[Rfam]
RNA sequence: CUAUGACUACCUACAGUCAUGGCGGAAGGAG
Numbered sequence: 001c002u003a004u005g006a007c008u009a010c011c012u013a014c015a016g017u018c019a020u021g022g023c024g025g026a027a028g029g030a031g
Stems, first nucleotide, its partner, number of pairs: 001022008